[Rfam]
RNA sequence: UGGGCUAUGGUGUAAUUGGCAGCACGAGUGAUUCUGGUUCAUUUAGUCUAGGUUCGAGUCCUGGUAGCCCAG
Numbered sequence: 001u002g003g004g005c006u007a008u009g010g011u012g013u014a015a016u017u018g019g020c021a022g023c024a025c026g027a028g029u030g031a032u033u034c035u036g037g038u039u040c041a042u043u044u045a046g047u048c049u050a051g052g053u054u055c056g057a058g059u060c061c062u063g064g065u066a067g068c069c070c071a072g
Stems, first nucleotide, its partner, number of pairs: 001071007010025004027043005048064005